[Rfam]
RNA sequence: CCCUCGCCCAAAGAAUCGCAGUCGAAGCUUACACACAGAGGGCUUCAUGCCACUCACUGUACACACCGCUUUGGGAGAAAGUCCCCGGACAGCCUACGACACCUGUAGGACUUGCGGAAACGCGCCACCAUAGAAGCAUGUGGCUUAUCUUGUCCUCUCUGCCUCCUCUACCCUCGCCCUACAACCUUUCGCACUCCCCUCCAACAUCGAUCAAGUGGGACGAUCGGGCUCGGAAGACCAUAUGGACGAUGAUACGAGUCCGCGCCUCCUUGCUUCGCACGUCUUUAACGCGGUCUUGUGUUGCUGGUGAGGAGGUUUUUGGGACCUUUGAUGGCAUGAGUAUGGGUCAAGGAGUUGGCAAGGACACAUUCGUCGAAUUUGAUAGUUAUGCGAUUGCUCUAGUCUCUUCACCCUCUACCUCAACGUCAGGUUCGCUCUUGUCUGCGAGACGAGGAUUCGAGCUGGGUAACUCGAUGGGGCUUAUUCUUGGUGCGAGG
Numbered sequence: 001c002c003c004u005c006g007c008c009c010a011a012a013g014a015a016u017c018g019c020a021g022u023c024g025a026a027g028c029u030u031a032c033a034c035a036c037a038g039a040g041g042g043c044u045u046c047a048u049g050c051c052a053c054u055c056a057c058u059g060u061a062c063a064c065a066c067c068g069c070u071u072u073g074g075g076a077g078a079a080a081g082u083c084c085c086c087g088g089a090c091a092g093c094c095u096a097c098g099a100c101a102c103c104u105g106u107a108g109g110a111c112u113u114g115c116g117g118a119a120a121c122g123c124g125c126c127a128c129c130a131u132a133g134a135a136g137c138a139u140g141u142g143g144c145u146u147a148u149c150u151u152g153u154c155c156u157c158u159c160u161g162c163c164u165c166c167u168c169u170a171c172c173c174u175c176g177c178c179c180u181a182c183a184a185c186c187u188u189u190c191g192c193a194c195u196c197c198c199c200u201c202c203a204a205c206a207u208c209g210a211u212c213a214a215g216u217g218g219g220a221c222g223a224u225c226g227g228g229c230u231c232g233g234a235a236g237a238c239c240a241u242a243u244g245g246a247c248g249a250u251g252a253u254a255c256g257a258g259u260c261c262g263c264g265c266c267u268c269c270u271u272g273c274u275u276c277g278c279a280c281g282u283c284u285u286u287a288a289c290g291c292g293g294u295c296u297u298g299u300g301u302u303g304c305u306g307g308u309g310a311g312g313a314g315g316u317u318u319u320u321g322g323g324a325c326c327u328u329u330g331a332u333g334g335c336a337u338g339a340g341u342a343u344g345g346g347u348c349a350a351g352g353a354g355u356u357g358g359c360a361a362g363g364a365c366a367c368a369u370u371c372g373u374c375g376a377a378u379u380u381g382a383u384a385g386u387u388a389u390g391c392g393a394u395u396g397c398u399c400u401a402g403u404c405u406c407u408u409c410a411c412c413c414u415c416u417a418c419c420u421c422a423a424c425g426u427c428a429g430g431u432u433c434g435c436u437c438u439u440g441u442c443u444g445c446g447a448g449a450c451g452a453g454g455a456u457u458c459g460a461g462c463u464g465g466g467u468a469a470c471u472c473g474a475u476g477g478g479g480c481u482u483a484u485u486c487u488u489g490g491u492g493c494g495a496g497g
Base pairs, nucleotide, nucleotide: 002497003496004495005494006493007492008490009489010488011487014395015394016393017392018391019390022075023073024072025071026070027069028068038053040051041050079482080481081480083479084478085477086476113124114123115122116121262367264365268363269362270361271360272359273358277355278354280352397466398465399464401463402462403461
Source information
The family of this 497-nucleotide sequence from Venturia effusa is "RNase MRP". Lineage of the source: Eukaryota > Fungi > Dikarya > leotiomyceta > Venturia. From the family's description: RNase MRP is an enzymatically active ribonucleoprotein with two distinct roles in eukaryotes. In mitochondria it plays a direct role in the initiation of mitochondrial DNA replication. In the nucleus it is involved in precursor rRNA processing, where it cleaves the internal transcribed spacer 1 between 18S and 5.8S rRNAs. Despite distinct functions, RNase MRP has been shown to be evolutionarily related to RNase P. Like eukaryotic RNase P, RNase MRP is not catalytically active without associated protein subunits. The family's RNA type in Rfam is ribozyme. The match comes from Rfam's covariance-model search (101 bits). The base pairs follow the family's consensus structure, which is taken from published work. Its Rfam clan is "RNaseP clan".